[Rfam]
RNA sequence: UUAAUCAGUAGAGGUGCGCUGCCUAUAAGUAACCGUGCGGAGGAUGAUACCGACGAUGCCGGAGAAAGGAGUCAGUGCCGAAGUAACUGUUGUUAUCACACUCAGUUGCUGGGUCUGCGUCGAAUAGGCGCAGGACUGCCAUAGUUUUUUUCCUAUGGAGCGCUACCUGAAGG
Number, nucleotide and partner (000 for none) at each position: 001u000002u000003a000004a000005u000006c000007a000008g166009u165010a164011g163012a000013g000014g000015u000016g078017c077018g076019c075020u074021g073022c000023c071024u070025a000026u000027a000028a000029g000030u000031a000032a000033c062034c061035g060036u000037g059038c058039g057040g000041a000042g000043g000044a000045u000046g000047a000048u000049a000050c000051c000052g000053a000054c000055g000056a000057u039058g038059c037060c035061g034062g033063a000064g000065a000066a000067a000068g000069g000070a024071g023072u000073c021074a020075g019076u018077g017078c016079c000080g000081a000082a110083g109084u108085a107086a106087c105088u104089g103090u000091u000092g099093u000094u000095a000096u000097c000098a000099c092100a000101c000102u000103c089104a088105g087106u086107u085108g084109c083110u082111g137112g136113g000114u134115c133116u132117g131118c130119g129120u128121c127122g000123a000124a000125u000126a000127g121128g120129c119130g118131c117132a116133g115134g114135a000136c112137u111138g000139c158140c157141a156142u155143a154144g153145u000146u000147u000148u000149u000150u000151u000152c000153c144154u143155a142156u141157g140158g139159a000160g000161c000162g000163c011164u010165a009166c008167c000168u000169g000170a000171a000172g000173g000

Shown here is a 173-nucleotide RNA sequence from Photobacterium profundum, a member of the family "Lysine riboswitch aptamer". The base pairs follow the family's consensus structure, which is taken from published work.